[Rfam]
RNA sequence: UCUUCAAGAAUGAUAACUUUUUCAAAAACCUCUUGGGAGAAAAAAGUUGGAUGAAAUGAAGA
Number, nucleotide and partner (000 for none) at each position: 001u062002c061003u060004u059005c058006a000007a000008g000009a000010a000011u000012g000013a000014u000015a048016a047017c046018u045019u044020u043021u042022u041023c000024a000025a000026a000027a000028a000029c000030c037031u036032c000033u000034u000035g000036g031037g030038a000039g000040a000041a022042a021043a020044a019045a018046g017047u016048u015049g000050g000051a000052u000053g000054a000055a000056a000057u000058g005059a004060a003061g002062a001

This 62-nucleotide sequence from Nematostella vectensis belongs to the Rfam family "Selenocysteine insertion sequence 1". It is annotated as a cis-regulatory element. Lineage of the source: Eukaryota > Eumetazoa > Anthozoa > Edwardsiidae > Nematostella. The literature on the family includes a 1996 paper in RNA by Walczak et al., "A novel RNA structural motif in the selenocysteine insertion element of eukaryotic selenoprotein mRNAs". The incorporation of selenocysteine into a protein sequence is directed by an in-frame UGA codon (usually a stop codon) within the coding region of the mRNA. Selenoprotein mRNAs contain a conserved secondary structure in the 3' UTR that is required for the distinction of UGA stop from UGA selenocysteine.